[Rfam]
RNA: Small nucleolar RNA snoR31/Z110/Z27
Organism: Prunus yedoensis
RNA sequence: UUCAUCAUUUGAUGAGAUAUGGAAUAAUCUUAGGACACCUUCCUACACGGCAUAAAUUUUGCUGUGGAUGAGAACAACUUUCCAUUCUGAUGAUGAU
Number, nucleotide and partner (000 for none) at each position: 001u000002u096003c095004a094005u093006c092007a091008u000009u000010u000011g000012a000013u000014g000015a000016g000017a000018u000019a000020u000021g000022g000023a000024a000025u000026a000027a000028u000029c000030u000031u000032a000033g000034g000035a000036c000037a000038c000039c000040u000041u000042c000043c049044u000045a000046c000047a000048c000049g043050g000051c000052a000053u000054a000055a000056a000057u000058u000059u000060u000061g000062c000063u000064g000065u000066g000067g000068a000069u000070g000071a000072g000073a000074a000075c000076a000077a000078c000079u000080u000081u000082c000083c000084a000085u000086u000087c000088u000089g000090a000091u007092g006093a005094u004095g003096a002097u000